RNA sequence: GCCAGAAACCCUUUGCUCGGAUCGUCCGGCACGUUCCUGCCGGUGAAGGGAUGGAAGC
Numbered sequence: 001g002c003c004a005g006a007a008a009c010c011c012u013u014u015g016c017u018c019g020g021a022u023c024g025u026c027c028g029g030c031a032c033g034u035u036c037c038u039g040c041c042g043g044u045g046a047a048g049g050g051a052u053g054g055a056a057g058c
Stems, first nucleotide, its partner, number of pairs: 009050007026043006
Dot-bracket structure: ........(((((((..........((((((......)))))))))))))........
A member of the RNA family "msiK RNA" from Actinopolymorpha pittospori, 58 nucleotides long. By type it is a cis-regulatory element. A search with the family's covariance model found it, with a score of 51 bits. Rfam 15.1 lists 1,374 matches to the family in 1,364 species. Lineage of the source: Bacteria > Actinomycetota > Propionibacteriales > Actinopolymorphaceae > Actinopolymorpha.